[Rfam]
This 77-nucleotide RNA from Novosphingopyxis sp. YJ-S2-01 belongs to the Rfam family "Makes More Granules Regulator RNA (mmgR)".
SuhB later renamed mmgR (makes more granules regulator) was a putative non-coding RNA found multiple times in the Agrobacterium tumefaciens genome and related alpha-proteobacteria. Other non-coding RNAs uncovered in the same analysis include: speF, ybhL, metA, and serC.Several studies inSinorhizobium meliloti showed that suhB element is indeed a non-coding RNA:firstly it was detected on Northern blot and called Sm8RNA, secondly in an RNAseq study referred to as SmelC689.The mutant phenotype's (strain lacking the small RNA) cytoplasm contains higher content of polyhydroxybutyrate (PBH)storage granules than wild type strain.
By type it is a small RNA.
RNA sequence: AGGACGGGCCUUUCAGGCAUCCUCUCCUAAGACUUUUCCAGGGCCGGUGUUCGCACCGGCCUUUUUUUUUGCCUGUU
Numbered sequence: 001a002g003g004a005c006g007g008g009c010c011u012u013u014c015a016g017g018c019a020u021c022c023u024c025u026c027c028u029a030a031g032a033c034u035u036u037u038c039c040a041g042g043g044c045c046g047g048u049g050u051u052c053g054c055a056c057c058g059g060c061c062u063u064u065u066u067u068u069u070u071g072c073c074u075g076u077u
Stems, first nucleotide, its partner, number of pairs: 008018004041062009